RNA sequence: UAGUUGAGUAGAAGCGGUUAAGAGUUGAAUCUCUGGGACAUUGCUCAAAGG
Numbered sequence: 001u002a003g004u005u006g007a008g009u010a011g012a013a014g015c016g017g018u019u020a021a022g023a024g025u026u027g028a029a030u031c032u033c034u035g036g037g038a039c040a041u042u043g044c045u046c047a048a049a050g051g
Stems, first nucleotide, its partner, number of pairs: 005047006015036001018038002021034004
Rfam assigns this 51-nucleotide sequence from Vibrio sp. EJY3 to the family "Xanthine riboswitch aptamer (NMT1 RNA)". NCBI's taxonomy places the organism under Bacteria, Gammaproteobacteria, Vibrionales, Vibrionaceae, Vibrio. The base pairs follow the family's consensus structure, which is taken from published work.